[Rfam]
RNA sequence: AUAUUAAGAAAUCUCCGAGCAUUUUAACCUAUGAAUUUCUAUUUAUGGUUGACUUGCCGAUAGGGUUUGAUUGGAAACGGUCAAGCCUCCCGAUGGAAAGGAGAAGUUUAUUAAUAAC
Numbered sequence: 001a002u003a004u005u006a007a008g009a010a011a012u013c014u015c016c017g018a019g020c021a022u023u024u025u026a027a028c029c030u031a032u033g034a035a036u037u038u039c040u041a042u043u044u045a046u047g048g049u050u051g052a053c054u055u056g057c058c059g060a061u062a063g064g065g066u067u068u069g070a071u072u073g074g075a076a077a078c079g080g081u082c083a084a085g086c087c088u089c090c091c092g093a094u095g096g097a098a099a100g101g102a103g104a105a106g107u108u109u110a111u112u113a114a115u116a117a118c
Stems, first nucleotide, its partner, number of pairs: 012104005019057003024052006033044004063088011089096002
Dot-bracket structure: ...........(((((..(((..((((((...((((....))))..))))))..))).....(((((((((((....)))))))))))((....))...)))))..............
Molybdenum/Tungsten riboswitch aptamer (Moco RNA motif): a 118-nucleotide RNA sequence from Schnuerera ultunensis.
The family's consensus secondary structure is taken from published work.
The match comes from Rfam's covariance-model search (82 bits).
The organism belongs to Schnuerera ultunensis, within Bacteria.